The record is a 34-nucleotide RNA sequence, which matches "S4-Bacteroidia ribosomal protein leader" in Rfam.
A reference for the family is Eckert and Weinberg (2020), "Discovery of 20 novel ribosomal leader candidates in bacteria and archaea", BMC Microbiol.
The base pairs follow the family's consensus structure, which is taken from published work.
It is annotated as a cis-regulatory leader.
[Rfam]
RNA sequence: GAUUGCAUAAUAAUCCUCUCUGCAAUCGCGGCUG
Numbered sequence: 001g002a003u004u005g006c007a008u009a010a011u012a013a014u015c016c017u018c019u020c021u022g023c024a025a026u027c028g029c030g031g032c033u034g
Stems, first nucleotide, its partner, number of pairs: 001027007